The record is an 88-nucleotide sequence from Neomoorella humiferrea, which matches "c-di-GMP-I riboswitch aptamer" in Rfam. Gene Ontology term of the family: cyclic-di-GMP binding. The source organism's lineage runs through Bacteria, Bacillati, Clostridia, Neomoorellaceae and Neomoorella. The match comes from Rfam's covariance-model search (80 bits).
RNA sequence: AACCGCAAAAGGCGAACCUGACCGAAAGGCAGGGGCGCAAAGCCACGGGCCUAAAACCUUAACAGGUCAUGGCAGCCGGGUUGCCGGG
Number, nucleotide and partner (000 for none) at each position: 001a000002a000003c000004c000005g000006c000007a000008a000009a000010a000011g000012g038013c037014g000015a000016a000017c033018c032019u031020g030021a000022c029023c028024g000025a000026a000027a000028g023029g022030c020031a019032g018033g017034g000035g000036c000037g013038c012039a000040a000041a082042g081043c080044c079045a000046c078047g077048g076049g073050c072051c071052u000053a000054a000055a000056a067057c066058c065059u064060u000061a000062a000063c000064a059065g058066g057067u056068c000069a000070u000071g051072g050073c049074a000075g000076c048077c047078g046079g044080g043081u042082u041083g000084c000085c000086g000087g000088g000